[Rfam]
RNA sequence: GGGAACCGAAUGGAUACUGCUUAUAUAUCGUCGUAAUUGGUCGACAGUCUCUACCCGAUACCGUAAAUAUCGGACUAUAAGCAAAAAAACGUGCACA
Dot-bracket structure: .................((((((((....((((........)))).........((((((.......))))))..))))))))..............